[Rfam]
RNA sequence: AUGAAGCCCAAAGCAGCUGCUGGCCACGGCACAAGAUUAGUUUCGUAUACUCUUGUGCGUGUGACAGCGGCUAUUGCGGGCCUUUCAAAUCCUACG
Dot-bracket structure: .....((((..(..((((((((.(((..(((((.((..............)).))))).)).).))))))))..)..))))...............
RNA: mir-210 microRNA precursor family